Description
Shown here is a 101-nucleotide RNA, a member of the family "Purine riboswitch aptamer". The family is grouped with related families in Rfam's "Purine riboswitches". Rfam's curators write: Riboswitches are metabolite binding domains within certain messenger RNAs that serve as precision sensors for their corresponding targets. A search with the family's covariance model found it, with a score of 38 bits.
RNA sequence: AUAUUGUAUAAAGUAUAAGAUCCUUUAACAUUAUUAACUGGAAUAUUCUGUUCUACCCAGAAUCCGUAAAAGACUGGAAAAUGAACUCAUAUUGAAUCAUU
Numbered sequence: 001a002u003a004u005u006g007u008a009u010a011a012a013g014u015a016u017a018a019g020a021u022c023c024u025u026u027a028a029c030a031u032u033a034u035u036a037a038c039u040g041g042a043a044u045a046u047u048c049u050g051u052u053c054u055a056c057c058c059a060g061a062a063u064c065c066g067u068a069a070a071a072g073a074c075u076g077g078a079a080a081a082u083g084a085a086c087u088c089a090u091a092u093u094g095a096a097u098c099a100u101u
Base pairs, nucleotide, nucleotide: 018087019086021084022083024081025080030047032045033044034043035042057077058076059075060074063071
Its family is annotated with purine nucleobase biosynthetic process in the Gene Ontology.